The family of this 145-nucleotide RNA from Podarcis lilfordi is "Small nucleolar RNA SNORA57". Gene Ontology terms of the family: nucleolus and RNA processing. On this family, see Vitali et al., Nucleic Acids Res 2003: "Identification of 13 novel human modification guide RNAs". About the family: U99 belongs to the H/ACA class of snoRNAs which are thought to guide the sites of modification of uridines to pseudouridines, the target for this family is unknown. By type it is an H/ACA-box small nucleolar RNA. The family has 26 seed sequences and 1,736 matches in Rfam 15.1.
[Rfam]
RNA sequence: CCUCCUUUUCUUGGGAGGCCUAGGCAGCCAAGUGUCACUGUCCAGUUCUUUUAUGUCCUGAGGGAAAGCAAAGCCCACCAGGGUUCCAUUCAUGGUGCCAGCAGCUUUUCCAUCUGCUGGUUCUAUCUCAACCACUGGGACAAGA
Numbered sequence: 001c002c003u004c005c006u007u008u009u010c011u012u013g014g015g016a017g018g019c020c021u022a023g024g025c026a027g028c029c030a031a032g033u034g035u036c037a038c039u040g041u042c043c044a045g046u047u048c049u050u051u052u053a054u055g056u057c058c059u060g061a062g063g064g065a066a067a068g069c070a071a072a073g074c075c076c077a078c079c080a081g082g083g084u085u086c087c088a089u090u091c092a093u094g095g096u097g098c099c100a101g102c103a104g105c106u107u108u109u110c111c112a113u114c115u116g117c118u119g120g121u122u123c124u125a126u127c128u129c130a131a132c133c134a135c136u137g138g139g140a141c142a143a144g145a
Base pairs, nucleotide, nucleotide: 001063002062003061004060015050016049017048018047020045023042024041025040026039027038079137080136081135083133098120099119100118101117102116103115104114